[Rfam]
RNA sequence: CGAAUGCACAGCGUCAUCCGUGACGUCAAACUCGUCUGUGAUCCGGCAACGUCAUCCUCGCGAUGGCGUGACGACCCAUCUAUCCGCUGCCAUCACCAUGGCAGCAUCACC
Numbered sequence: 001c002g003a004a005u006g007c008a009c010a011g012c013g014u015c016a017u018c019c020g021u022g023a024c025g026u027c028a029a030a031c032u033c034g035u036c037u038g039u040g041a042u043c044c045g046g047c048a049a050c051g052u053c054a055u056c057c058u059c060g061c062g063a064u065g066g067c068g069u070g071a072c073g074a075c076c077c078a079u080c081u082a083u084c085c086g087c088u089g090c091c092a093u094c095a096c097c098a099u100g101g102c103a104g105c106a107u108c109a110c111c
Stems, first nucleotide, its partner, number of pairs: 011026006032074005050068006086105008
RNA: DUF3577 RNA